[Rfam]
RNA sequence: UGGCGAGAACCCGGCGAAUCAAAUGUUGUAGUGAUUCGCCGGGUUCUCGCCAGUU
Number, nucleotide and partner (000 for none) at each position: 001u000002g000003g050004c049005g048006a047007g046008a045009a044010c043011c042012c041013g040014g039015c038016g037017a036018a035019u034020c033021a032022a000023a000024u000025g000026u000027u000028g000029u000030a000031g000032u021033g020034a019035u018036u017037c016038g015039c014040c013041g012042g011043g010044u009045u008046c007047u006048c005049g004050c003051c000052a000053g000054u000055u000
Rfam assigns this 55-nucleotide sequence from Aloysia citrodora to the family "Plastid-ccsA-ndhD-2 3UTR RNA". For this family Rfam cites "Control of plastid gene expression: 3' inverted repeats act as mRNA processing and stabilizing elements, but do not terminate transcription" (Stern and Gruissem, Cell, 1987). Plastid ccsA-ndhD-2 is a non-coding RNA (ncRNA) recognised in plastids. The family's RNA type in Rfam is cis-regulatory element. Pairs were carried over by alignment from the consensus structure, which was predicted with LocARNA. The source organism's lineage runs through Eukaryota, Spermatophyta, Gunneridae, Lamiales and Aloysia.